Record summary:
Shown here is an 87-nucleotide sequence from Strigamia maritima, a member of the family "mir-276 microRNA precursor family". On this family, see Skalsky et al., BMC Genomics 2010: "Identification of microRNAs expressed in two mosquito vectors, Aedes albopictus and Culex quinquefasciatus". Taxonomically the source falls in Strigamia (Eukaryota, Metazoa, Protostomia, Mandibulata).
RNA sequence: UGGCCGGAUUCUCGGGAGCGAGGUAUGGAGUUCCUACUGUACUAUACAGAAGGUAGGAACUUCAUACCGUGCUCUUGAUGGACCCAC
Numbered sequence: 001u002g003g004c005c006g007g008a009u010u011c012u013c014g015g016g017a018g019c020g021a022g023g024u025a026u027g028g029a030g031u032u033c034c035u036a037c038u039g040u041a042c043u044a045u046a047c048a049g050a051a052g053g054u055a056g057g058a059a060c061u062u063c064a065u066a067c068c069g070u071g072c073u074c075u076u077g078a079u080g081g082a083c084c085c086a087c
Base pairs, nucleotide, nucleotide: 012078013077014076017073018072019071020070022068023067024066025065026064028062029061030060031059032058033057034056035055036054037053